[Rfam]
This 153-nucleotide RNA sequence from Roseovarius bejariae belongs to the Rfam family "Ruegeria cis2 sRNA". The match comes from Rfam's covariance-model search (86 bits). Gene Ontology term of the family: regulation of gene expression. On this family, see Rivers et al., Front Microbiol 2016: "Experimental Identification of Small Non-Coding RNAs in the Model Marine Bacterium Ruegeria pomeroyi DSS-3". The source organism's lineage runs through Bacteria, Pseudomonadati, Pseudomonadota, Alphaproteobacteria and Roseovarius.

RNA sequence: AUUGGAAUUGCGCGGGAAGUAGUUGACGAACGUGAACCCGCGGCACUGGUCAAUGGUGUGGAACAACGGGUUCCAGUCGAACAUCAUCAGCAUGGUUGGGGGCAGACUGUUGGCGAUGAACAUCUUGCCCGAAGCGAUCAUGUUGGCCCGCUG
Number, nucleotide and partner (000 for none) at each position: 001a000002u035003u034004g033005g000006a000007a000008u030009u029010g000011c000012g000013c025014g024015g023016g000017a000018a000019g000020u000021a000022g000023u015024u014025g013026a000027c000028g000029a009030a008031c000032g000033u004034g003035a002036a000037c000038c056039c055040g054041c000042g051043g050044c049045a000046c000047u000048g000049g044050u043051c042052a000053a000054u040055g039056g038057u000058g000059u000060g000061g000062a000063a000064c153065a152066a000067c150068g149069g000070g082071u081072u080073c079074c000075a000076g000077u000078c000079g073080a072081a071082c070083a000084u000085c000086a000087u146088c145089a144090g143091c142092a141093u140094g139095g000096u000097u000098g000099g000100g000101g130102g129103c127104a126105g125106a000107c000108u122109g000110u119111u118112g117113g000114c000115g000116a000117u112118g111119a110120a000121c000122a108123u000124c000125u105126u104127g103128c000129c102130c101131g000132a000133a000134g000135c000136g000137a000138u000139c094140a093141u092142g091143u090144u089145g088146g087147c000148c000149c068150g067151c000152u065153g064